[Rfam]
RNA sequence: UAGGGGGGACAGGGUUCGGAGCCCCUCCCCGAACCUAGGGUAACUAUUAAAGUGGAAGGGAA
Numbered sequence: 001u002a003g004g005g006g007g008g009a010c011a012g013g014g015u016u017c018g019g020a021g022c023c024c025c026u027c028c029c030c031g032a033a034c035c036u037a038g039g040g041u042a043a044c045u046a047u048u049a050a051a052g053u054g055g056a057a058g059g060g061a062a
Stems, first nucleotide, its partner, number of pairs: 008041001010039001012036004016031001018029002022060003026056002
Record summary
This 62-nucleotide RNA sequence from Suricata suricatta belongs to the Rfam family "Gag/pol translational readthrough site". A search with the family's covariance model found it, with a score of 72 bits. By type it is a cis-regulatory element. For this family Rfam cites "RNA pseudoknots: translational frameshifting and readthrough on viral RNAs" (ten Dam et al., Virus Genes, 1990). Taxonomically the source falls in Suricata (Eukaryota, Metazoa, Vertebrata, Sarcopterygii).